Rfam assigns this 284-nucleotide RNA sequence from Tolypothrix bouteillei to the family "HNH endonuclease-associated RNA and ORF (HEARO) RNA".
The family's RNA type in Rfam is non-coding RNA gene.
It scores 116 bits against the family's covariance model.
The family's consensus secondary structure is taken from published work.
On this family, see Weinberg et al., Nature 2009: "Exceptional structured noncoding RNAs revealed by bacterial metagenome analysis".
Taxonomically the source falls in Tolypothrix bouteillei (Bacteria, Bacillati, Cyanophyceae, Tolypothrichaceae).

RNA sequence: GUCAGCACCCCGCUCUGAAGAAACGGGGCUUCGUGCCUCUGCCUUUAGGUAGCUGACCCGCUUAAGUCCUUAACUGGACUACGUUAUCGGCAAGAGUUAAAGUUCGUACCUGCGAAUACGUGAUGCCAGUUCGCUGCUCUACAACCAAAUGGUUAACCAGUUUUACGAGGGGUAAGACAGUGCUGUUUGGAUAGUGAGGCAAAUCUGAAGACGGGUUUCCCGUCGCAGGAUAUUGCCGAACCCGUAAGGGUACCGACCGAUAACUUUGGCAAGGCUCACAUUAC
Number, nucleotide and partner (000 for none) at each position: 001g057002u056003c055004a054005g053006c052007a050008c000009c028010c027011c025012g024013c000014u021015c020016u000017g000018a000019a000020g015021a014022a000023a000024c012025g011026g000027g010028g009029c000030u000031u000032c000033g000034u000035g000036c000037c000038u000039c000040u000041g000042c000043c000044u000045u000046u000047a000048g000049g000050u007051a000052g006053c005054u004055g003056a002057c001058c000059c000060g270061c269062u268063u000064a266065a080066g079067u078068c077069c076070u000071u000072a000073a000074c000075u000076g069077g068078a067079c066080u065081a000082c000083g264084u263085u262086a261087u260088c259089g000090g000091c000092a000093a000094g000095a000096g257097u256098u255099a000100a000101a000102g000103u000104u000105c000106g142107u141108a000109c000110c136111u000112g134113c133114g132115a131116a130117u129118a000119c000120g000121u000122g000123a000124u000125g275126c274127c273128a000129g117130u116131u115132c114133g113134c112135u000136g110137c000138u000139c000140u000141a107142c106143a000144a000145c190146c189147a188148a187149a186150u185151g184152g183153u182154u000155a000156a000157c000158c180159a000160g178161u177162u176163u175164u174165a173166c172167g000168a000169g000170g000171g000172g166173u165174a164175a163176g162177a161178c160179a000180g158181u000182g153183c152184u151185g150186u149187u148188u147189g146190g145191a000192u000193a000194g000195u000196g000197a000198g000199g000200c000201a000202a000203a000204u000205c000206u000207g000208a000209a000210g000211a000212c000213g000214g000215g000216u000217u000218u000219c000220c000221c000222g000223u000224c000225g000226c000227a000228g000229g000230a000231u000232a000233u000234u000235g000236c000237c000238g000239a000240a000241c000242c000243c000244g000245u000246a000247a000248g000249g000250g000251u000252a000253c000254c000255g098256a097257c096258c000259g088260a087261u086262a085263a084264c083265u000266u064267u000268g062269g061270c060271a000272a000273g127274g126275c125276u000277c000278a000279c000280a000281u000282u000283a000284c000